[Rfam]
The family of this 74-nucleotide sequence is "chrB-a RNA". It is one of the family's seed sequences.

RNA sequence: CCGGAGGGGUCCCGCGCGCACCCCGUGAGGCUUCGGCCCAAGCGUCGCGUCCAUCAUGAGGAAUGGACGCCAUG
Number, nucleotide and partner (000 for none) at each position: 001c000002c000003g000004g000005a000006g024007g023008g022009g021010u020011c000012c000013c000014g000015c000016g000017c000018g000019c000020a010021c009022c008023c007024c006025g000026u000027g000028a000029g000030g000031c000032u000033u000034c000035g000036g000037c000038c000039c000040a000041a000042g000043c000044g000045u000046c000047g070048c069049g068050u067051c066052c065053a000054u000055c000056a000057u000058g000059a000060g000061g000062a000063a000064u000065g052066g051067a050068c049069g048070c047071c000072a000073u000074g000